[Rfam]
RNA sequence: GAUUACAUAUCAUCCUCUCUGUGAUCGCGGCUG
Numbered sequence: 001g002a003u004u005a006c007a008u009a010u011c012a013u014c015c016u017c018u019c020u021g022u023g024a025u026c027g028c029g030g031c032u033g
Base pairs, nucleotide, nucleotide: 001026002025003024004023005022006021007020